RNA sequence: CAAGCAUGAACGCUGCCAUUUUCCGCUUCUUUUUUUACUUUAGCGCCUGAAUCCAGGGGGCUUGCGCGUAAGAAAAGAAACGGAAAGUAGCGCCUAAGCCUCCCUAAGCGGAGGCUUUUUUGUU
Numbered sequence: 001c002a003a004g005c006a007u008g009a010a011c012g013c014u015g016c017c018a019u020u021u022u023c024c025g026c027u028u029c030u031u032u033u034u035u036u037a038c039u040u041u042a043g044c045g046c047c048u049g050a051a052u053c054c055a056g057g058g059g060g061c062u063u064g065c066g067c068g069u070a071a072g073a074a075a076a077g078a079a080a081c082g083g084a085a086a087g088u089a090g091c092g093c094c095u096a097a098g099c100c101u102c103c104c105u106a107a108g109c110g111g112a113g114g115c116u117u118u119u120u121u122g123u124u
Stems, first nucleotide, its partner, number of pairs: 015091002018088001020086006027079007035071004044056001060065001096117008
This 124-nucleotide sequence from Gibbsiella quercinecans belongs to the Rfam family "Phenylalanine leader peptide". By type it is a cis-regulatory leader. It scores 71 bits against the family's covariance model. Gene Ontology term of the family: cellular amino acid metabolic process. The family has 71 seed sequences and 379 matches in Rfam 15.1. Pairs were carried over by alignment from the consensus structure, which was predicted with CMfinder.